[Rfam]
Nucleotides: 127
Stems, first nucleotide, its partner, number of pairs: 001041010029055003047080005066111004084107006096123006
Number, partner (000 for none) and nucleotide at each position: 001041c002040c003039u004038u005037a006036u007035g008034a009033u010032g011000g012000c013000g014000g015000c016000u017000c018000u019000a020000a021000c022000g023000a024000c025000a026000u027000c028000g029055u030054a031053g032010c033009g034008u035007c036006a037005u038004a039003a040002g041001g042000u043000u044000a045000u046000a047080g048079c049078g050077u051076u052000a053031c054030u055029a056000g057000u058000a059000g060000g061000g062000u063000a064000a065000g066111a067110g068109g069108c070000u071000g072000a073000a074000a075000c076051a077050g078049c079048g080047c081000a082000a083000u084107a085106c086105a087104g088103g089102u090000g091000g092000c093000g094000a095000a096123a097122a098121u099120a100119g101118u102089g103088c104087c105086u106085g107084u108069g109068c110067c111066u112000c113000g114000c115000a116000a117000g118101a119100c120099u121098g122097u123096u124000g125000g126000g127000u